[Rfam]
RNA: 6S / SsrS RNA
Organism: Ectothiorhodospira mobilis
RNA sequence: GCACCUCUGCGGUGUACGUGUGCGGCCGGGGUUUAUCCUUGAGCCUAAUGAACUACCCCGGGAGCCGAACUGCGAUGGUGUUGUGCAUGUCCGCCCGCGUGCGGAAAGCCUGGAUCCAUCGCGUAGGCACCCACUUGAACCGCUGGUUCAAGGUCGAAGGUCUGCCACGGCACAUGCGGAGCGUGU
Numbered sequence: 001g002c003a004c005c006u007c008u009g010c011g012g013u014g015u016a017c018g019u020g021u022g023c024g025g026c027c028g029g030g031g032u033u034u035a036u037c038c039u040u041g042a043g044c045c046u047a048a049u050g051a052a053c054u055a056c057c058c059c060g061g062g063a064g065c066c067g068a069a070c071u072g073c074g075a076u077g078g079u080g081u082u083g084u085g086c087a088u089g090u091c092c093g094c095c096c097g098c099g100u101g102c103g104g105a106a107a108g109c110c111u112g113g114a115u116c117c118a119u120c121g122c123g124u125a126g127g128c129a130c131c132c133a134c135u136u137g138a139a140c141c142g143c144u145g146g147u148u149c150a151a152g153g154u155c156g157a158a159g160g161u162c163u164g165c166c167a168c169g170g171c172a173c174a175u176g177c178g179g180a181g182c183g184u185g186u
Stems, first nucleotide, its partner, number of pairs: 005181007012173004017169003037153009060132003064128003068124001073121006085109002090105005